[Rfam]
RNA sequence: CAAGCUGGCCAGGCGGCCGCGGCACUACGGUGUCGAGGAACGUCCGGGCUCCAUAGAGCGCGGUGGUGGGUAACGCCCACCCGAGGUGACUCGCGGGACAGUGCCACAGAAAGCAGACCGCCGUAAUAGGUAAGGGUGAAAGGGUGAGGUAAGAGCUCACCGCGGACCGGGUGACCGGGACGGCAUGGUAAACCCCACCGGGAGCAAGACCAGACAGUCGGCUGAAUGCUGCUCGCACACGGGCUUCGCCCGGGCCGACGGGUAGGUUGCUAGAGAUGUACGGCAACGUGCAUCCCAGAUGGAUGGUCGCCCUAGACAGAACCCGGCGUAUCGGCCAGCUUGUCCC
Numbered sequence: 001c002a003a004g005c006u007g008g009c010c011a012g013g014c015g016g017c018c019g020c021g022g023c024a025c026u027a028c029g030g031u032g033u034c035g036a037g038g039a040a041c042g043u044c045c046g047g048g049c050u051c052c053a054u055a056g057a058g059c060g061c062g063g064u065g066g067u068g069g070g071u072a073a074c075g076c077c078c079a080c081c082c083g084a085g086g087u088g089a090c091u092c093g094c095g096g097g098a099c100a101g102u103g104c105c106a107c108a109g110a111a112a113g114c115a116g117a118c119c120g121c122c123g124u125a126a127u128a129g130g131u132a133a134g135g136g137u138g139a140a141a142g143g144g145u146g147a148g149g150u151a152a153g154a155g156c157u158c159a160c161c162g163c164g165g166a167c168c169g170g171g172u173g174a175c176c177g178g179g180a181c182g183g184c185a186u187g188g189u190a191a192a193c194c195c196c197a198c199c200g201g202g203a204g205c206a207a208g209a210c211c212a213g214a215c216a217g218u219c220g221g222c223u224g225a226a227u228g229c230u231g232c233u234c235g236c237a238c239a240c241g242g243g244c245u246u247c248g249c250c251c252g253g254g255c256c257g258a259c260g261g262g263u264a265g266g267u268u269g270c271u272a273g274a275g276a277u278g279u280a281c282g283g284c285a286a287c288g289u290g291c292a293u294c295c296c297a298g299a300u301g302g303a304u305g306g307u308c309g310c311c312c313u314a315g316a317c318a319g320a321a322c323c324c325g326g327c328g329u330a331u332c333g334g335c336c337a338g339c340u341u342g343u344c345c346c
Stems, first nucleotide, its partner, number of pairs: 001342010011331001012311007020035006040329003044326005049204004056247002061200005066080005081095001082093004096195002101193002103189003118135002120131003143161006162184001163182002167178004208268004217259006240252005275294008
The record is a 346-nucleotide sequence from Flaviflexus salsibiostraticola, which matches "Bacterial RNase P class A" in Rfam. Pairs were carried over by alignment from the consensus structure, which is taken from published work. A search with the family's covariance model found it, with a score of 300 bits. Rfam classes the family as a ribozyme.